A member of the RNA family "Mammalian CPEB3 ribozyme" from Alligator mississippiensis, 74 nucleotides long. It scores 47 bits against the family's covariance model. Taxonomically the source falls in Alligator (Eukaryota, Vertebrata, Gnathostomata, Archosauria).

RNA sequence: AUUGCCAUAACAGCCAUAGCAGAAGUGCUCAUGUUGCGGCCCUGUCAGAUUUUCAAGAACCUGCAAAUUCUGCU
Numbered sequence: 001a002u003u004g005c006c007a008u009a010a011c012a013g014c015c016a017u018a019g020c021a022g023a024a025g026u027g028c029u030c031a032u033g034u035u036g037c038g039g040c041c042c043u044g045u046c047a048g049a050u051u052u053u054c055a056a057g058a059a060c061c062u063g064c065a066a067a068u069u070c071u072g073c074u
Base pairs, nucleotide, nucleotide: 013040014039015038018074019073020072021071022070023069024068025037026036027035046063047062048061050059051058052057